[Rfam]
RNA sequence: GGUCUUAUGGUCUAGUGGUUAUGACUGUGGAUUUUGAUAUCUUAUUGAAAAUCUUCCAUCGACCCCGGUUCGAACCCGGGUAAGACCU
Numbered sequence: 001g002g003u004c005u006u007a008u009g010g011u012c013u014a015g016u017g018g019u020u021a022u023g024a025c026u027g028u029g030g031a032u033u034u035u036g037a038u039a040u041c042u043u044a045u046u047g048a049a050a051a052u053c054u055u056c057c058a059u060c061g062a063c064c065c066c067g068g069u070u071c072g073a074a075c076c077c078g079g080g081u082a083a084g085a086c087c088u
Stems, first nucleotide, its partner, number of pairs: 001087007010025003027059005064080005
The record is an 88-nucleotide sequence from Penicillium egyptiacum, which matches "tRNA" in Rfam. The base pairs follow the family's consensus structure, which is taken from published work. It is annotated as a transfer RNA. The match comes from Rfam's covariance-model search (53 bits). NCBI's taxonomy places the organism under Eukaryota, Dikarya, leotiomyceta, Eurotiales, Penicillium.